Overview: Shown here is an 81-nucleotide RNA from Abrus precatorius, a member of the family "Small nucleolar RNA Z102/R77". Its Rfam clan is "SNORD44 clan". Rfam 15.1 lists 1,346 matches to the family in 224 species. The organism belongs to Abrus, within Eukaryota. Gene Ontology terms of the family: RNA processing and nucleolus.
RNA sequence: GGAUGAAAUGAUGAUCAUUGUUUCCCUAUUGGUUUGACUGCCUAAAUGAUGGCAUUUUGUAUUAGCUCUAUCUGAUCAUUC
Numbered sequence: 001g002g003a004u005g006a007a008a009u010g011a012u013g014a015u016c017a018u019u020g021u022u023u024c025c026c027u028a029u030u031g032g033u034u035u036g037a038c039u040g041c042c043u044a045a046a047u048g049a050u051g052g053c054a055u056u057u058u059g060u061a062u063u064a065g066c067u068c069u070a071u072c073u074g075a076u077c078a079u080u081c
Base pairs, nucleotide, nucleotide: 002080003079004078005077036056039054040053041052042051
Notes: The base pairs follow the family's consensus structure, which was predicted with PFOLD. A search with the family's covariance model found it, with a score of 83 bits. It is annotated as a C/D-box small nucleolar RNA. A reference for the family is Chen et al. (2003), "The high diversity of snoRNAs in plants: identification and comparative study of 120 snoRNA genes from Oryza sativa", Nucleic Acids Res.